[Rfam]
RNA sequence: GGGCCGGCUCAGGCUCAGUGGUUCCUUCCAGCAGCCUUCUCUUGCCAACCACUCUUGCUGCCAGGGUGGUUGGAGACCUGUGGGCACCCUCCAGCUCUAUU
Numbered sequence: 001g002g003g004c005c006g007g008c009u010c011a012g013g014c015u016c017a018g019u020g021g022u023u024c025c026u027u028c029c030a031g032c033a034g035c036c037u038u039c040u041c042u043u044g045c046c047a048a049c050c051a052c053u054c055u056u057g058c059u060g061c062c063a064g065g066g067u068g069g070u071u072g073g074a075g076a077c078c079u080g081u082g083g084g085c086a087c088c089c090u091c092c093a094g095c096u097c098u099a100u101u
Stems, first nucleotide, its partner, number of pairs: 002096003006092002013085004018081004026075005